A member of the RNA family "6S / SsrS RNA" from Leptolyngbya sp. Heron Island J, 184 nucleotides long. The literature on the family includes a 2000 paper in Cell by Wassarman and Storz, "6S RNA regulates E. coli RNA polymerase activity". The organism belongs to Leptolyngbya, within Bacteria. The family's consensus secondary structure is taken from published work. E. coli 6S RNA was the first non coding RNA to be sequenced, but its function was unknown until recently. It consists of 184 nucleotides that fold into an extended hairpin structure with a large single-stranded internal bulge. The 6S RNA specifically associates with RNA polymerase holoenzyme containing the sigma70 specificity factor. This interaction represses expression from a sigma70-dependent promoter during stationary phase. 6S RNA homologs have recently been identified in most bacterial genomes. Many Gram-positive species have two copies of 6S RNA. In Bacillus subtilis, both copies appear to interact with RNA polymerase holoenzyme containing the housekeeping sigma factor and be expressed during different stages of growth. In many proteobacteria, 6S RNA may be processed from a transcript encoding homologs of the E. coli YgfA protein which is a putative 5-formyltetrahydrofolate cycloligase activity.
RNA sequence: GUUUCACUACGGCGUUGGUGACUGCCAACAAUGUUUCUUGAUCUAUGCUUUUCACUUAAGGGCAUCGAAUAAGUUCGCGGUGGCAGUAUACCGGGCUUGCACCCGGAAACUUUAAAUCGCGACUACGGGCCCACCUGGAUUUUCCAGGUCAAAAACUGAGGUAAGACGGCGUUGCGGUGAAACU
Numbered sequence: 001g002u003u004u005c006a007c008u009a010c011g012g013c014g015u016u017g018g019u020g021a022c023u024g025c026c027a028a029c030a031a032u033g034u035u036u037c038u039u040g041a042u043c044u045a046u047g048c049u050u051u052u053c054a055c056u057u058a059a060g061g062g063c064a065u066c067g068a069a070u071a072a073g074u075u076c077g078c079g080g081u082g083g084c085a086g087u088a089u090a091c092c093g094g095g096c097u098u099g100c101a102c103c104c105g106g107a108a109a110c111u112u113u114a115a116a117u118c119g120c121g122a123c124u125a126c127g128g129g130c131c132c133a134c135c136u137g138g139a140u141u142u143u144c145c146a147g148g149u150c151a152a153a154a155a156c157u158g159a160g161g162u163a164a165g166a167c168g169g170c171g172u173u174g175c176g177g178u179g180a181a182a183c184u
Base pairs, nucleotide, nucleotide: 002182003181004180005179006178007177008176010174011173012172013171014170015169018167019166035155036154039151040150041149042148043147044146060132061131062130065127069124075122076121077120078119079118080117081116086110087109091106092105093104094103095102